[Rfam]
RNA sequence: UUGAGGUGAGGUAGUAGGUUGUAUAGUAGUGCACUACAUCAUUAUAGGAGACUGUACAGCCUGCUAACUUUCCUUGA
Numbered sequence: 001u002u003g004a005g006g007u008g009a010g011g012u013a014g015u016a017g018g019u020u021g022u023a024u025a026g027u028a029g030u031g032c033a034c035u036a037c038a039u040c041a042u043u044a045u046a047g048g049a050g051a052c053u054g055u056a057c058a059g060c061c062u063g064c065u066a067a068c069u070u071u072c073c074u075u076g077a
Base pairs, nucleotide, nucleotide: 001077002076003075004074005073006072008070009069010068012066013065014064015063016062017061018060019059020058021057022056023055024054025053026052027051040047
RNA: let-7 microRNA precursor family